[Rfam]
RNA sequence: AUUCUGUUUCAGGGCGAGGUGAAAAUCCUCACUGGCGGUAAUCGGAGCCGGCCGCAGCAGGCCGUGCUUCCCGAGAGUCCGCGAACCCUGCGUUUUCGCAGGGCCGAUCCGGUGAGAUCCCGGAACCAACGGUUACAGUCCGGAUGGAAGAGGCAGAAA
Numbered sequence: 001a002u003u004c005u006g007u008u009u010c011a012g013g014g015c016g017a018g019g020u021g022a023a024a025a026u027c028c029u030c031a032c033u034g035g036c037g038g039u040a041a042u043c044g045g046a047g048c049c050g051g052c053c054g055c056a057g058c059a060g061g062c063c064g065u066g067c068u069u070c071c072c073g074a075g076a077g078u079c080c081g082c083g084a085a086c087c088c089u090g091c092g093u094u095u096u097c098g099c100a101g102g103g104c105c106g107a108u109c110c111g112g113u114g115a116g117a118u119c120c121c122g123g124a125a126c127c128a129a130c131g132g133u134u135a136c137a138g139u140c141c142g143g144a145u146g147g148a149a150g151a152g153g154c155a156g157a158a159a
Stems, first nucleotide, its partner, number of pairs: 003157008017029003031139002033128002035082004086103002108124005130142003